[Rfam]
Glycine riboswitch aptamer: a 117-nucleotide sequence from Alkaliphilus serpentinus. Rfam describes the family as follows. This family represents the bacterial glycine riboswitch. The source organism's lineage runs through Bacteria, Bacillati, Clostridia, Peptostreptococcales and Alkaliphilus.

RNA sequence: AAGAAAAAUGCGGGAGAGACUUGACUGGUUAUUAACCAAGUUAAGCGCCGAAGGAAGAAGUUAGACAAUUCGCCAUUGUUUAGUGAAAAUCUCAGGCAAAAGGACCGUGUUUGGACA
Numbered sequence: 001a002a003g004a005a006a007a008a009u010g011c012g013g014g015a016g017a018g019a020c021u022u023g024a025c026u027g028g029u030u031a032u033u034a035a036c037c038a039a040g041u042u043a044a045g046c047g048c049c050g051a052a053g054g055a056a057g058a059a060g061u062u063a064g065a066c067a068a069u070u071c072g073c074c075a076u077u078g079u080u081u082a083g084u085g086a087a088a089a090u091c092u093c094a095g096g097c098a099a100a101a102g103g104a105c106c107g108u109g110u111u112u113g114g115a116c117a
Stems, first nucleotide, its partner, number of pairs: 006112008020045007047097003050093002054091002060084009